[Rfam]
Shown here is a 132-nucleotide RNA sequence from Zooshikella ganghwensis, a member of the family "Molybdenum/Tungsten riboswitch aptamer (Moco RNA motif)".
RNA sequence: AAUGCGUCAAAACUCCGAGCUUUUAUACCUAAACCGGAUUGGCAUGGUGUACUGGCCGUGGUUUUUACCACCGGGUUAUCAGAGAAAUCAGGUAGCCUCCCGAAUUUGGAAAGGUGUUUUAUGCUACAAGAC
Numbered sequence: 001a002a003u004g005c006g007u008c009a010a011a012a013c014u015c016c017g018a019g020c021u022u023u024u025a026u027a028c029c030u031a032a033a034c035c036g037g038a039u040u041g042g043c044a045u046g047g048u049g050u051a052c053u054g055g056c057c058g059u060g061g062u063u064u065u066u067a068c069c070a071c072c073g074g075g076u077u078a079u080c081a082g083a084g085a086a087a088u089c090a091g092g093u094a095g096c097c098u099c100c101c102g103a104a105u106u107u108g109g110a111a112a113g114g115u116g117u118u119u120u121a122u123g124c125u126a127c128a129a130g131a132c
Base pairs, nucleotide, nucleotide: 003126004125011118012117013116015114016113019056020055021054024051025050026049027048028047029046034042035041036040058071059070060069061068062067073098074097075096076095077094078093079092080091082089083088099109100108
Gene Ontology terms of the family: regulation of gene expression, molybdenum ion binding and tungstate binding.
A reference for the family is Regulski et al. (2008), "in molybdenum cofactor and tungsten cofactor metabolism", Mol Microbiol.